[Rfam]
RNA sequence: CGGAGGGCUGAGAAGGUGAGGCAGUUCAGCACUGUGCUGCCUUCCACCGGUUAAGACCUCCGAGAGCGAAGGCCUGCCGAGGCGGAGGAUGUCCCUCUGCCGCCCACGGAGGGGCAGCGCUGCGCUGGCCGACAUUGA
Numbered sequence: 001c002g003g004a005g006g007g008c009u010g011a012g013a014a015g016g017u018g019a020g021g022c023a024g025u026u027c028a029g030c031a032c033u034g035u036g037c038u039g040c041c042u043u044c045c046a047c048c049g050g051u052u053a054a055g056a057c058c059u060c061c062g063a064g065a066g067c068g069a070a071g072g073c074c075u076g077c078c079g080a081g082g083c084g085g086a087g088g089a090u091g092u093c094c095c096u097c098u099g100c101c102g103c104c105c106a107c108g109g110a111g112g113g114g115c116a117g118c119g120c121u122g123c124g125c126u127g128g129c130c131g132a133c134a135u136u137g138a
Base pairs, nucleotide, nucleotide: 002061003060004059005058006057015048016047017046018045019042020041021040022039023038024037025036081130082129083128086126087125090122091121097117098116099115100114101113103112104111
Shown here is a 138-nucleotide RNA from Suricata suricatta, a member of the family "Small nucleolar RNA SNORA47". A reference for the family is Huttenhofer et al. (2001), "RNomics: an experimental approach that identifies 201 candidates for novel, small, non-messenger RNAs in mouse", EMBO J. The family's consensus secondary structure was predicted with WAR. Rfam classes the family as an H/ACA-box small nucleolar RNA.